[Rfam]
Overview: A member of the RNA family "SAM riboswitch aptamer (S box leader)" from Romboutsia lituseburensis, 110 nucleotides long. Its family is annotated with regulation of gene expression in the Gene Ontology.
RNA sequence: ACCUUAUCAAGAGAGACUGAGGGAAUGGCCCGAUGAUGUCUCAGCAACCUACCAAAGUUUGGUGUGGUGCUAAUUCCAACAGAAUUUUUAUAAAUUCUGAAAGAUGAGGG
Numbered sequence: 001a002c003c004u005u006a007u008c009a010a011g012a013g014a015g016a017c018u019g020a021g022g023g024a025a026u027g028g029c030c031c032g033a034u035g036a037u038g039u040c041u042c043a044g045c046a047a048c049c050u051a052c053c054a055a056a057g058u059u060u061g062g063u064g065u066g067g068u069g070c071u072a073a074u075u076c077c078a079a080c081a082g083a084a085u086u087u088u089u090a091u092a093a094a095u096u097c098u099g100a101a102a103g104a105u106g107a108g109g110g
Stems, first nucleotide, its partner, number of pairs: 002109007013042005021031003026078003043071004048067002050064004075102001080099006